[Rfam]
RNA sequence: CCUGCUGGGAGCUCAAUGUGGCACUGUGUGUAUUUGACAAGCUGAGUCCCACACUCAGUGUGCAGAGUGUCAGUUUGUCAAAUACCCCAAGUGAGGCAUUGCUGAGC
Numbered sequence: 001c002c003u004g005c006u007g008g009g010a011g012c013u014c015a016a017u018g019u020g021g022c023a024c025u026g027u028g029u030g031u032a033u034u035u036g037a038c039a040a041g042c043u044g045a046g047u048c049c050c051a052c053a054c055u056c057a058g059u060g061u062g063c064a065g066a067g068u069g070u071c072a073g074u075u076u077g078u079c080a081a082a083u084a085c086c087c088c089a090a091g092u093g094a095g096g097c098a099u100u101g102c103u104g105a106g107c
Stems, first nucleotide, its partner, number of pairs: 022093004028087001030085014051070003055066002
RNA: mir-223 microRNA precursor family